Record summary
The family of this 104-nucleotide RNA from Neobittarella massiliensis is "Purine riboswitch aptamer". Pairs were carried over by alignment from the consensus structure, which is taken from published work. A search with the family's covariance model found it, with a score of 62 bits.

RNA sequence: CUGAAUACCGAGAUCAGCAUUCGUAUAAGCCUGCGAAUACGGCGCAGGAGUAUCUACGGGACAACCGGAAAUUGUCGUACGCUAUGAAUGUGUUUUUUCAGCUA
Numbered sequence: 001c002u003g004a005a006u007a008c009c010g011a012g013a014u015c016a017g018c019a020u021u022c023g024u025a026u027a028a029g030c031c032u033g034c035g036a037a038u039a040c041g042g043c044g045c046a047g048g049a050g051u052a053u054c055u056a057c058g059g060g061a062c063a064a065c066c067g068g069a070a071a072u073u074g075u076c077g078u079a080c081g082c083u084a085u086g087a088a089u090g091u092g093u094u095u096u097u098u099c100a101g102c103u104a
Base pairs, nucleotide, nucleotide: 018090019089020088021087022086023085024084025083030048031047032046033045034044035043058078060076061075062074063073064072